The record is a 71-nucleotide sequence, which matches "Fluoride riboswitch aptamer (crcB RNA motif)" in Rfam. The base pairs follow the family's consensus structure, which is taken from published work.
RNA sequence: UGUAAUAAAGGUGAUGAGGUCCGCCCUGACCAUAAGUCAAAACCGCUUAUGCUGAUGACUUCUACAUAUUU
Numbered sequence: 001u002g003u004a005a006u007a008a009a010g011g012u013g014a015u016g017a018g019g020u021c022c023g024c025c026c027u028g029a030c031c032a033u034a035a036g037u038c039a040a041a042a043c044c045g046c047u048u049a050u051g052c053u054g055a056u057g058a059c060u061u062c063u064a065c066a067u068a069u070u071u
Base pairs, nucleotide, nucleotide: 010025011024012023013022016062017061018060019059020058021057045052046051